[Rfam]
RNA sequence: AGACUUACGUAAGUAGCAGUAUUAUCACCAACGAAGUUUAUCUGAGGCACAGUUCUCGCUCACUGAAACAUCCCAAUACCCAGCCAUGAAAACUCUCAAUAUAGUCGGCACUGGCAACUUUUGACAGUCUCUAUGGAGA
Numbered sequence: 001a002g003a004c005u006u007a008c009g010u011a012a013g014u015a016g017c018a019g020u021a022u023u024a025u026c027a028c029c030a031a032c033g034a035a036g037u038u039u040a041u042c043u044g045a046g047g048c049a050c051a052g053u054u055c056u057c058g059c060u061c062a063c064u065g066a067a068a069c070a071u072c073c074c075a076a077u078a079c080c081c082a083g084c085c086a087u088g089a090a091a092a093c094u095c096u097c098a099a100u101a102u103a104g105u106c107g108g109c110a111c112u113g114g115c116a117a118c119u120u121u122u123g124a125c126a127g128u129c130u131c132u133a134u135g136g137a138g139a
Stems, first nucleotide, its partner, number of pairs: 021053003025049001028047002035043002083115003087110002092105003128139004